Shown here is a 199-nucleotide RNA sequence from Agrilus planipennis, a member of the family "R2 RNA element".
RNA sequence: AUUUACAUAUUCAAGUUAAUUUAAGUUGUAGUUUUUCGUUUUUAAGUGACGGCUGAAGAGGACUUUAGUUGGUCCUAGAACUACCUGAGGUAGAGGGGUUUUAGUCGGUAGGUCCGAGGACUUCUUCCUUGGGAAUCCGACACUACCUAUUCGUACGGACGGCUGGGUGUCUUUUGAAGAUUUCCCCUCUUCCACGAAC
Dot-bracket structure: .....................................((((((..............)))))).....((.((...............((.((.(((......(((((....((((((((.....))))))))...))))).(..((.................))..)..............)))..)).)))).)).
Rfam describes the family as follows. This family represents the 3' UTR region of the R2 retrotransposable element. This family is known to interact with the R2-encoded reverse transcriptase in a reaction known as target primed reverse transcription (TPRT).
A search with the family's covariance model found it, with a score of 48 bits.
The literature on the family includes a 2004 paper in RNA by Ruschak et al., "Secondary structure models of the 3' untranslated regions of diverse R2 RNAs".
The family has 15 seed sequences and 3,698 matches in Rfam 15.1.
Pairs were carried over by alignment from the consensus structure, which is taken from published work.
Lineage of the source: Eukaryota > Pancrustacea > Altocrustacea > Aparaglossata > Agrilus.